A member of the RNA family "tRNA" from Flavonifractor plautii, 71 nucleotides long. A search with the family's covariance model found it, with a score of 58 bits. Rfam describes the family as follows. Transfer RNA (tRNA) molecules are approximately 80 nucleotides in length. By type it is a transfer RNA. The organism belongs to Flavonifractor plautii, within Bacteria.
RNA sequence: AGCGGGUUUGUGUAAGGGUAGCACAGCAGACUCUGACUCUGUAUGUGAGGGUUCGAAUCCUUCACCCGCUG
Numbered sequence: 001a002g003c004g005g006g007u008u009u010g011u012g013u014a015a016g017g018g019u020a021g022c023a024c025a026g027c028a029g030a031c032u033c034u035g036a037c038u039c040u041g042u043a044u045g046u047g048a049g050g051g052u053u054c055g056a057a058u059c060c061u062u063c064a065c066c067c068g069c070u071g
Base pairs, nucleotide, nucleotide: 001070002069003068004067005066006065007064010024011023012022013021026042027041028040029039030038047063048062049061050060051059